[Rfam]
RNA sequence: UAAGUUGAAAAUUGAAAGACCCAUAUAUACCUCUAAUACGGUGAGGAGUUUCUACGGACUACCAUAAAUAGUCUGCUAUGGGCCAGACGGCGUUACAA
Numbered sequence: 001u002a003a004g005u006u007g008a009a010a011a012u013u014g015a016a017a018g019a020c021c022c023a024u025a026u027a028u029a030c031c032u033c034u035a036a037u038a039c040g041g042u043g044a045g046g047a048g049u050u051u052c053u054a055c056g057g058a059c060u061a062c063c064a065u066a067a068a069u070a071g072u073c074u075g076c077u078a079u080g081g082g083c084c085a086g087a088c089g090g091c092g093u094u095a096c097a098a
Stems, first nucleotide, its partner, number of pairs: 018084001020082006030046004056074006